[Rfam]
Nucleotides: 085
Base pairs, nucleotide, nucleotide: 001083002082003081005079006078007077008076009075010074011073012072014070015069018066019065020064021063022062024060025059026058027057028056029055030054031053032052033051036050037049
Number, partner (000 for none) and nucleotide at each position: 001083u002082c003081a004000u005079g006078c007077u008076g009075u010074g011073a012072c013000c014070c015069u016000a017000c018066a019065a020064a021063g022062g023000c024060a025059a026058g027057c028056a029055c030054u031053u032052u033051c034000u035000c036050u037049u038000g039000u040000c041000u042000a043000a044000a045000a046000g047000a048000a049037a050036a051033g052032a053031a054030g055029g056028u057027g058026c059025u060024u061000c062022c063021c064020u065019u066018u067000g068000c069015a070014g071000u072012g073011u074010u075009a076008c077007g078006g079005u080000u081003u082002g083001a084000g085000a